[Rfam]
The record is a 73-nucleotide sequence from Crocodylus porosus, which matches "Mammalian CPEB3 ribozyme" in Rfam.
A search with the family's covariance model found it, with a score of 60 bits.
The organism belongs to Crocodylus, within Eukaryota.

RNA sequence: ACAAGUUUAAGGCCAUAGCAGAAGCAUUCACAGUGUGGCCCUGUCAGAUUCCAAUGAAUCUGUGAAUUCUGCU
Number, nucleotide and partner (000 for none) at each position: 001a000002c000003a000004a000005g000006u000007u000008u000009a000010a000011g040012g039013c038014c037015a000016u000017a073018g072019c071020a070021g069022a068023a067024g036025c035026a034027u000028u000029c000030a000031c000032a000033g000034u026035g025036u024037g014038g013039c012040c011041c000042u000043g000044u000045c062046a061047g060048a059049u058050u057051c056052c000053a000054a000055u000056g051057a050058a049059u048060c047061u046062g045063u000064g000065a000066a000067u023068u022069c021070u020071g019072c018073u017